Annotation
mir-2774 microRNA precursor family: a 65-nucleotide RNA sequence from Bombyx mori.
RNA sequence: AAAACAUUCGGACCGUCGGUCAACCGAGCAAAUAUCACCCACUCGGUGGAAGAUCUUCCGGUCAU
Numbered sequence: 001a002a003a004a005c006a007u008u009c010g011g012a013c014c015g016u017c018g019g020u021c022a023a024c025c026g027a028g029c030a031a032a033u034a035u036c037a038c039c040c041a042c043u044c045g046g047u048g049g050a051a052g053a054u055c056u057u058c059c060g061g062u063c064a065u
Base pairs, nucleotide, nucleotide: 004062005061010059011058012057015054016053017052020050021049023047024046025045026044027043028042
For this family Rfam cites "MicroRNAs of Bombyx mori identified by Solexa sequencing" (Liu et al., BMC Genomics, 2010).